[Rfam]
This 85-nucleotide sequence from Gossypium harknessii belongs to the Rfam family "Small nucleolar RNA Z159/U59".
Rfam links the family to the GO terms RNA processing and nucleolus.
For this family Rfam cites "The high diversity of snoRNAs in plants: identification and comparative study of 120 snoRNA genes from Oryza sativa" (Chen et al., Nucleic Acids Res, 2003).
The base pairs follow the family's consensus structure, which was predicted with PFOLD.
RNA sequence: CACUCUGAUGAUGUUUAAUAUAAAAACUUUCGUUCUCCUGAGCUACUAAAUGCUGAAAUUUUAUGGAGACCUGAGCUGAAGAGUU
Numbered sequence: 001c002a003c004u005c006u007g008a009u010g011a012u013g014u015u016u017a018a019u020a021u022a023a024a025a026a027c028u029u030u031c032g033u034u035c036u037c038c039u040g041a042g043c044u045a046c047u048a049a050a051u052g053c054u055g056a057a058a059u060u061u062u063a064u065g066g067a068g069a070c071c072u073g074a075g076c077u078g079a080a081g082a083g084u085u
Stems, first nucleotide, its partner, number of pairs: 003083004